[Rfam]
RNA sequence: AAUAUUUAGGUCUGUGGUUGAAAGUCCAAGCCAGUCGCAGGCAAAGGGAUCCACGUAAGUUAAUCUUAAAAGUUAGAUUAAUGAUCAUGGUGCGGCUUAGAAGUAAGACCUACCGAUAACAAAUCGAGAGAAUUAAUAGUGCGGCAAACCCAAGCGAAAGUUCCAGUAGGCGAGUGUGGGGUCAAAAACCAGGUCAGCUAAAUAUU
Numbered sequence: 001a002a003u004a005u006u007u008a009g010g011u012c013u014g015u016g017g018u019u020g021a022a023a024g025u026c027c028a029a030g031c032c033a034g035u036c037g038c039a040g041g042c043a044a045a046g047g048g049a050u051c052c053a054c055g056u057a058a059g060u061u062a063a064u065c066u067u068a069a070a071a072g073u074u075a076g077a078u079u080a081a082u083g084a085u086c087a088u089g090g091u092g093c094g095g096c097u098u099a100g101a102a103g104u105a106a107g108a109c110c111u112a113c114c115g116a117u118a119a120c121a122a123a124u125c126g127a128g129a130g131a132a133u134u135a136a137u138a139g140u141g142c143g144g145c146a147a148a149c150c151c152a153a154g155c156g157a158a159a160g161u162u163c164c165a166g167u168a169g170g171c172g173a174g175u176g177u178g179g180g181g182u183c184a185a186a187a188a189c190c191a192g193g194u195c196a197g198c199u200a201a202a203u204a205u206u
Stems, first nucleotide, its partner, number of pairs: 001206009012197003015191005028177001030175001031041001033097007050090002055085001058082001060080001062078001064076001088184001109170005114126004130163004139155002
RNA: raiA RNA
Organism: Asaccharospora irregularis